[Rfam]
RNA sequence: GUACUCUGUUUUCUUUUCAGUUCGUAUAAAUCGUUUGCCUUUUACUAAAGAUUUUCAUAGAGAGGGAUGUUUAUGAGUUUGUACCCCAUUUUUUAAGGUUUUGUUUUGGUAAGGCU
Numbered sequence: 001g002u003a004c005u006c007u008g009u010u011u012u013c014u015u016u017u018c019a020g021u022u023c024g025u026a027u028a029a030a031u032c033g034u035u036u037g038c039c040u041u042u043u044a045c046u047a048a049a050g051a052u053u054u055u056c057a058u059a060g061a062g063a064g065g066g067a068u069g070u071u072u073a074u075g076a077g078u079u080u081g082u083a084c085c086c087c088a089u090u091u092u093u094u095a096a097g098g099u100u101u102u103g104u105u106u107u108g109g110u111a112a113g114g115c116u
Stems, first nucleotide, its partner, number of pairs: 003078004010067008019058001028054005034048002096116001098115006
RNA: U5 spliceosomal RNA
Organism: Mauremys mutica